[Rfam]
RNA sequence: UCAGUGGGUGGGGUGAUCGCUGGUGCUCGGGUUGGUCGGCUCCAUUGGUGCCGGUCGAUCUCGAACACUGGAGGAAAGUCCGGGCUCCACAGGGCAGGAUGGUCGAUAACGUCGACCGGCCGUGAGGUUAGGGAAAGUGCAGCAGAGAACAGACCGCCGAACGGUGGGUUCGCAAGGAUCCAUGCGUGGUAAGGGUGAAACGGUGCGGUAAGAGCGCACCAGCGGACGGGGUGACUCGUUCGGCUUGGUAAACCCCAUCCGGAGCUAGACCAAACAGGGUGGAUUGUCGAAGCGGCCCGCUUCGCCCGACAUCCGGGUAGGUCGCAAUUGAGGCGGCGAGCAAUCGUCGUGCACAGAUAAAUGGUCACCGGCGGAGGUUGUCGGUUCGCUCUCGGAGCGGGCGGAUGACCGAAGUUACAAAACCCGGCUUACAAACCCACUGAUUCG
Number, nucleotide and partner (000 for none) at each position: 001u443002c442003a441004g440005u439006g438007g437008g436009u435010g000011g432012g369013g368014u367015g366016a365017u364018c363019g000020c071021u070022g069023g068024u067025g066026c000027u064028c063029g062030g061031g060032u000033u000034g000035g000036u000037c000038g000039g000040c000041u000042c000043c000044a000045u000046u000047g000048g000049u000050g000051c000052c000053g000054g000055u000056c000057g000058a000059u000060c031061u030062c029063g028064a027065a000066c025067a024068c023069u022070g021071g020072a000073g000074g000075a000076a430077a429078g428079u000080c427081c426082g425083g424084g423085c264086u263087c262088c261089a000090c000091a000092g298093g297094g296095c295096a000097g260098g259099a258100u257101g256102g116103u115104c114105g113106a112107u000108a000109a000110c000111g000112u106113c105114g104115a103116c102117c131118g129119g128120c127121c126122g000123u000124g000125a000126g121127g120128u119129u118130a000131g117132g255133g254134a000135a000136a000137g253138u252139g249140c248141a000142g000143c000144a000145g000146a000147g000148a000149a000150c000151a000152g000153a000154c194155c193156g190157c189158c188159g187160a000161a000162c184163g183164g000165u000166g000167g000168g000169u000170u000171c000172g000173c000174a000175a000176g000177g000178a000179u000180c000181c000182a000183u163184g162185c000186g000187u159188g158189g157190u156191a000192a000193g155194g154195g000196u000197g000198a000199a000200a000201c000202g220203g219204u218205g217206c216207g215208g000209u000210a000211a000212g000213a000214g000215c207216g206217c205218a204219c203220c202221a000222g244223c242224g241225g240226a239227c238228g237229g236230g235231g000232u000233g000234a000235c230236u229237c228238g227239u226240u225241c224242g223243g000244c222245u000246u000247g000248g140249u139250a000251a000252a138253c137254c133255c132256c101257a100258u099259c098260c097261g088262g087263a086264g085265c000266u000267a000268g323269a322270c321271c320272a000273a000274a000275c000276a000277g000278g314279g313280u000281g000282g310283a000284u000285u000286g000287u000288c000289g303290a302291a301292g300293c299294g000295g095296c094297c093298c092299g293300c292301u291302u290303c289304g000305c000306c000307c000308g000309a000310c282311a000312u000313c279314c278315g000316g000317g000318u000319a000320g271321g270322u269323c268324g000325c000326a000327a000328u000329u000330g000331a000332g352333g350334c349335g348336g347337c346338g345339a344340g000341c000342a000343a000344u339345c338346g337347u336348c335349g334350u333351g000352c332353a000354c000355a000356g000357a000358u000359a000360a000361a000362u000363g018364g017365u016366c015367a014368c013369c012370g000371g000372c000373g000374g000375a000376g000377g000378u000379u000380g000381u000382c000383g000384g000385u000386u000387c000388g000389c000390u000391c000392u000393c000394g000395g000396a000397g000398c000399g000400g000401g000402c000403g000404g000405a000406u000407g000408a000409c000410c000411g000412a000413a000414g000415u000416u000417a000418c000419a000420a000421a000422a000423c084424c083425c082426g081427g080428c078429u077430u076431a000432c011433a000434a000435a009436c008437c007438c006439a005440c004441u003442g002443a001444u000445u000446c000447g000

Rfam assigns this 447-nucleotide RNA sequence from Neorhodopirellula pilleata to the family "Bacterial RNase P class A".
Ribonuclease P (RNase P) is a ubiquitous endoribonuclease, found in archaea, bacteria and eukarya as well as chloroplasts and mitochondria.
Its family is annotated with ribonuclease P activity, tRNA processing and dimeric ribonuclease P complex in the Gene Ontology.
Taxonomically the source falls in Neorhodopirellula (Bacteria, Planctomycetota, Pirellulales, Pirellulaceae).
The match comes from Rfam's covariance-model search (268 bits).